[Rfam]
RNA sequence: GGCAAGGGUAGAGGCGCGAUAUUUAAGAGUACCAUUGAUGAGGUAAGCACAAUGAUUCAAUGGAAAAGGAAAUGUCGCCGAAGUAUAUAACUGAUGCUUUAAGGUUAUAUAUCUGGGGUUGUAUAAAAUAUAUGCAACACUGUCACAAAUUGUAUUUGUGGAGAGCUAUCAUUUAA
Number, nucleotide and partner (000 for none) at each position: 001g000002g000003c000004a000005a000006g000007g170008g169009u168010a167011g166012a000013g000014g000015c000016g078017c077018g076019a075020u074021a073022u072023u071024u070025a000026a000027g000028a000029g000030u000031a000032c063033c062034a061035u060036u059037g058038a057039u000040g000041a000042g000043g000044u000045a000046a000047g000048c000049a000050c000051a000052a000053u000054g000055a000056u000057u038058c037059a036060a035061u034062g033063g032064a000065a000066a000067a000068g000069g000070a024071a023072a022073u021074g020075u019076c018077g017078c016079c000080g000081a000082a114083g113084u111085a110086u109087a108088u107089a106090a105091c104092u103093g000094a000095u000096g000097c000098u000099u000100u000101a000102a000103g092104g091105u090106u089107a088108u087109a086110u085111a084112u000113c083114u082115g141116g140117g000118g138119u137120u136121g135122u134123a133124u132125a131126a000127a000128a000129u000130a000131u125132a124133u123134g122135c121136a120137a119138c118139a000140c116141u115142g000143u161144c160145a159146c158147a157148a156149a155150u000151u000152g000153u000154a000155u149156u148157u147158g146159u145160g144161g143162a000163g000164a000165g000166c011167u010168a009169u008170c007171a000172u000173u000174u000175a000176a000
Shown here is a 176-nucleotide RNA sequence from Clostridium chauvoei, a member of the family "Lysine riboswitch aptamer". The organism belongs to Clostridium chauvoei, within Bacteria. Pairs were carried over by alignment from the consensus structure, which is taken from published work. The match comes from Rfam's covariance-model search (125 bits). Rfam links the family to the GO term lysine biosynthetic process.